[Rfam]
RNA sequence: GCGAUGAGCUGAAUUGUUUAAGCCGAGAGACAUAUCCUUUAGGAUACGAACGAAUGUGGCGUUUGGUCUCUCGCCGCAAUACGCAUAAGGCGCCUGUUAUUUAAACAGGCGCC
Numbered sequence: 001g002c003g004a005u006g007a008g009c010u011g012a013a014u015u016g017u018u019u020a021a022g023c024c025g026a027g028a029g030a031c032a033u034a035u036c037c038u039u040u041a042g043g044a045u046a047c048g049a050a051c052g053a054a055u056g057u058g059g060c061g062u063u064u065g066g067u068c069u070c071u072c073g074c075c076g077c078a079a080u081a082c083g084c085a086u087a088a089g090g091c092g093c094c095u096g097u098u099a100u101u102u103a104a105a106c107a108g109g110c111g112c113c
Base pairs, nucleotide, nucleotide: 014079015078016077017076024073025072026071027070028069029068030067031066035041047065048064050062051061052060089113090112091111092110093109094108095107096106097105

A member of the RNA family "BsrF" from Metabacillus arenae, 113 nucleotides long.
NCBI's taxonomy places the organism under Bacteria, Bacillati, Bacilli, Bacillaceae, Metabacillus.
The match comes from Rfam's covariance-model search (92 bits).
The literature on the family includes a 2008 paper in Gene by Saito et al., "Novel small RNA-encoding genes in the intergenic regions of Bacillus subtilis".
The family's RNA type in Rfam is small RNA.